[Rfam]
RNA sequence: AAGCCCCUAGGGACGGCUAAAGUCCGUUACGUCCUGUAACGAACGCCGUCAUUAAACCAUCCAGGUCG
Numbered sequence: 001a002a003g004c005c006c007c008u009a010g011g012g013a014c015g016g017c018u019a020a021a022g023u024c025c026g027u028u029a030c031g032u033c034c035u036g037u038a039a040c041g042a043a044c045g046c047c048g049u050c051a052u053u054a055a056a057c058c059a060u061c062c063a064g065g066u067c068g
Base pairs, nucleotide, nucleotide: 012050013049014048015047016046017045026040027039028038029037030036056066057065058064
Shown here is a 68-nucleotide RNA sequence from Halalkalibacillus sediminis, a member of the family "Bacillaceae-1 RNA". By type it is a small RNA. Lineage of the source: Bacteria > Bacillota > Bacilli > Caryophanales > Halalkalibacillus.